Record summary
The family of this 64-nucleotide RNA from Echinops telfairi is "Small nucleolar RNA SNORD98". Rfam 15.1 lists 571 matches to the family in 543 species. Taxonomically the source falls in Echinops (Eukaryota, Bilateria, Mammalia, Theria). Gene Ontology terms of the family: RNA processing and nucleolus.
RNA sequence: GAGUUGUGAUGUGUAAAUCCUAUUCCAUUGCUGAACUGCAGUGUGGAAAUGAUGAACUGAACUC
Numbered sequence: 001g002a003g004u005u006g007u008g009a010u011g012u013g014u015a016a017a018u019c020c021u022a023u024u025c026c027a028u029u030g031c032u033g034a035a036c037u038g039c040a041g042u043g044u045g046g047a048a049a050u051g052a053u054g055a056a057c058u059g060a061a062c063u064c
Base pairs, nucleotide, nucleotide: 001064002063003062004061